Rfam assigns this 49-nucleotide sequence from Dyadobacter sp. Leaf189 to the family "Guanidine-II riboswitch aptamer (mini-ykkC)". The source organism's lineage runs through Bacteria, Pseudomonadati, Cytophagales, Spirosomataceae and Dyadobacter. Rfam's curators write: Simpler in structure and has fewer highly conserved nucleotide positions than the ykkC-yxkD leader. The base pairs follow the family's consensus structure, which is taken from published work.
RNA sequence: GCAGGAGGACGACCUCCCCCGUAGUGGGAACCGAAUCGGGACGGCCCGG
Numbered sequence: 001g002c003a004g005g006a007g008g009a010c011g012a013c014c015u016c017c018c019c020c021g022u023a024g025u026g027g028g029a030a031c032c033g034a035a036u037c038g039g040g041a042c043g044g045c046c047c048g049g
Stems, first nucleotide, its partner, number of pairs: 001020001004017005036049005